Shown here is a 96-nucleotide RNA from Treponema vincentii, a member of the family "TD-2 RNA". Rfam 15.1 lists 310 matches to the family in 11 species. It scores 80 bits against the family's covariance model. Rfam classes the family as a small RNA. A reference for the family is Weinberg et al. (2007), "Identification of 22 candidate structured RNAs in bacteria using the CMfinder comparative genomics pipeline", Nucleic Acids Res. The base pairs follow the family's consensus structure, which is taken from published work.

RNA sequence: UCUGACAGGAUGUCAGUGGUUCCAAGCAAUAUCGAGUUUUUCGUAUGAAAAACUCGAAGCUAAAAAAUGUACAUGGAGGUAUAUUUUUUAGCGAUG
Numbered sequence: 001u002c003u004g005a006c007a008g009g010a011u012g013u014c015a016g017u018g019g020u021u022c023c024a025a026g027c028a029a030u031a032u033c034g035a036g037u038u039u040u041u042c043g044u045a046u047g048a049a050a051a052a053c054u055c056g057a058a059g060c061u062a063a064a065a066a067a068u069g070u071a072c073a074u075g076g077a078g079g080u081a082u083a084u085u086u087u088u089u090a091g092c093g094a095u096g
Base pairs, nucleotide, nucleotide: 002016003015004014005013006012033056034055035054036053037052038051039050040049041048042047059092060091061090062089063088064087065086066085067084068083069082070081071080072079